[Rfam]
RNA sequence: AUCCGAGUGCAUGGGCGUCUUCCUUCUCCGUGAAGCGAUAAGCUGAGAGAGGAAUUUUGCUAGUUGAAAACUAUACACUGACCGCUCCUCGUCGGGUUCGCCUGGCGAGGGAAUUUUUGGAACUCAUUACUCUGU
Number, nucleotide and partner (000 for none) at each position: 001a000002u000003c000004c000005g000006a000007g000008u000009g000010c000011a000012u000013g000014g000015g000016c000017g000018u000019c000020u054021u053022c052023c051024u050025u000026c049027u048028c047029c000030g000031u000032g000033a000034a044035g043036c042037g000038a000039u000040a000041a000042g036043c035044u034045g000046a000047g028048a027049g026050a024051g023052g022053a021054a020055u000056u000057u000058u000059g000060c000061u000062a000063g000064u000065u000066g000067a000068a000069a000070a000071c000072u000073a000074u000075a000076c000077a000078c000079u000080g000081a000082c000083c000084g000085c000086u111087c110088c109089u108090c107091g106092u105093c104094g103095g102096g101097u000098u000099c000100g000101c096102c095103u094104g093105g092106c091107g090108a089109g088110g087111g086112a000113a000114u000115u000116u000117u000118u000119g000120g000121a000122a000123c000124u000125c134126a133127u000128u000129a000130c000131u000132c000133u126134g125135u000
The record is a 135-nucleotide sequence from Fusarium avenaceum, which matches "U4 spliceosomal RNA" in Rfam. Lineage of the source: Eukaryota > Fungi > Dikarya > Fusarium > Fusarium tricinctum species complex. It scores 94 bits against the family's covariance model. Rfam links the family to the GO terms spliceosomal tri-snRNP complex assembly and U4 snRNP. The base pairs follow the family's consensus structure, which is taken from published work. It is annotated as a spliceosomal small nuclear RNA.